[Rfam]
RNA sequence: GGUAACGUGGCCGAGUGGUCUAAGGCGUUGGAUUUAAGCAUUGAUUCAUAUGAAUCACGUAUCCCAAUACGCGAGAGCGUGCGAGGGUUCGAACCCCUCCGUUACCA
Numbered sequence: 001g002g003u004a005a006c007g008u009g010g011c012c013g014a015g016u017g018g019u020c021u022a023a024g025g026c027g028u029u030g031g032a033u034u035u036a037a038g039c040a041u042u043g044a045u046u047c048a049u050a051u052g053a054a055u056c057a058c059g060u061a062u063c064c065c066a067a068u069a070c071g072c073g074a075g076a077g078c079g080u081g082c083g084a085g086g087g088u089u090c091g092a093a094c095c096c097c098u099c100c101g102u103u104a105c106c107a
Stems, first nucleotide, its partner, number of pairs: 001106007010026003028067004083099005
Background:
This 107-nucleotide RNA sequence from Rhodocollybia butyracea belongs to the Rfam family "tRNA". Rfam classes the family as a transfer RNA. Its family is annotated with triplet codon-amino acid adaptor activity in the Gene Ontology. The base pairs follow the family's consensus structure, which is taken from published work. The match comes from Rfam's covariance-model search (48 bits). Transfer RNA (tRNA) molecules are approximately 80 nucleotides in length.